This 86-nucleotide sequence from Gorilla gorilla belongs to the Rfam family "mir-624 microRNA precursor family".
Rfam's curators put it in the seed alignment.
The source organism's lineage runs through Eukaryota, Opisthokonta, Boreoeutheria, Euarchontoglires and Gorilla.
RNA sequence: AAUGCUGUUUCAAGGUAGUACCAGUACCUUGUGUUCAGUGGAACCAAGGUAAACACAAGAUAUUGGUAUUACCUUGUGAUAGCAUU
Numbered sequence: 001a002a003u004g005c006u007g008u009u010u011c012a013a014g015g016u017a018g019u020a021c022c023a024g025u026a027c028c029u030u031g032u033g034u035u036c037a038g039u040g041g042a043a044c045c046a047a048g049g050u051a052a053a054c055a056c057a058a059g060a061u062a063u064u065g066g067u068a069u070u071a072c073c074u075u076g077u078g079a080u081a082g083c084a085u086u
Stems, first nucleotide, its partner, number of pairs: 001086009011076016028059008036049001039046002